mir-9223 microRNA precursor family: a 75-nucleotide RNA sequence from Cnephaeus nilssonii. Rfam links the family to the GO terms miRNA-mediated post-transcriptional gene silencing and RISC complex. A search with the family's covariance model found it, with a score of 74 bits. Pairs were carried over by alignment from the consensus structure, which was predicted with RNAalifold.
[Rfam]
RNA sequence: GGCAGUUCUCAGAUGAUGCACCCCUGAAUCGGGCUCCCUCCUCUCUGGUUCCAGGUGCGUCACCCGAGAACCGUA
Number, nucleotide and partner (000 for none) at each position: 001g000002g074003c073004a000005g071006u070007u069008c068009u067010c066011a000012g064013a000014u062015g061016a060017u059018g000019c057020a056021c055022c054023c000024c000025u000026g051027a050028a049029u048030c047031g046032g045033g044034c000035u000036c000037c000038c000039u000040c000041c000042u000043c000044u033045c032046u031047g030048g029049u028050u027051c026052c000053a000054g022055g021056u020057g019058c000059g017060u016061c015062a014063c000064c012065c000066g010067a009068g008069a007070a006071c005072c000073g003074u002075a000